The family of this 54-nucleotide RNA sequence from Conger conger is "UnaL2 LINE 3' element". The family has 30 seed sequences and 493,311 matches in Rfam 15.1. By type it is a cis-regulatory element.
RNA sequence: UACGCACUUUGUCGUAAGUCGCUCUGGAUAAGAGCGUCUGCCAAAUGCCAAUAA
Numbered sequence: 001u002a003c004g005c006a007c008u009u010u011g012u013c014g015u016a017a018g019u020c021g022c023u024c025u026g027g028a029u030a031a032g033a034g035c036g037u038c039u040g041c042c043a044a045a046u047g048c049c050a051a052u053a054a
Stems, first nucleotide, its partner, number of pairs: 014041003020036006